[Rfam]
The record is an 86-nucleotide RNA sequence from Bacillus sp. DNRA2, which matches "c-di-GMP-I riboswitch aptamer" in Rfam. Rfam links the family to the GO term cyclic-di-GMP binding. It scores 68 bits against the family's covariance model.
RNA sequence: AAACGAAAAAGGCAAACCUUGAGAAAUCUUGGGACGCAAAGCUAUAGGGGCUUAACGGGGAACGCCGAAGUCAGCCAGUUACCGAA
Numbered sequence: 001a002a003a004c005g006a007a008a009a010a011g012g013c014a015a016a017c018c019u020u021g022a023g024a025a026a027u028c029u030u031g032g033g034a035c036g037c038a039a040a041g042c043u044a045u046a047g048g049g050g051c052u053u054a055a056c057g058g059g060g061a062a063c064g065c066c067g068a069a070g071u072c073a074g075c076c077a078g079u080u081a082c083c084g085a086a
Stems, first nucleotide, its partner, number of pairs: 012037002017032002021028002040080004047076002049072003056067003